[Rfam]
RNA sequence: AUGCCUUAAACUUAUGAGUAAGGAAAAGAACGAUUCGGGGUGACUCCUGAACCCUCACUGCUAGUCUGAGACGAAUUUUUGAGUGGGUGAAGGUUGCCCCUAAGGUGACCCGCCUACUUUGUGGGAUGUCUGGGAGUCACAAUCUGCCCG
Numbered sequence: 001a002u003g004c005c006u007u008a009a010a011c012u013u014a015u016g017a018g019u020a021a022g023g024a025a026a027a028g029a030a031c032g033a034u035u036c037g038g039g040g041u042g043a044c045u046c047c048u049g050a051a052c053c054c055u056c057a058c059u060g061c062u063a064g065u066c067u068g069a070g071a072c073g074a075a076u077u078u079u080u081g082a083g084u085g086g087g088u089g090a091a092g093g094u095u096g097c098c099c100c101u102a103a104g105g106u107g108a109c110c111c112g113c114c115u116a117c118u119u120u121g122u123g124g125g126a127u128g129u130c131u132g133g134g135a136g137u138c139a140c141a142a143u144c145u146g147c148c149c150g
Stems, first nucleotide, its partner, number of pairs: 004023005032053001034051006054070004084150005091145006100134002103131005109125005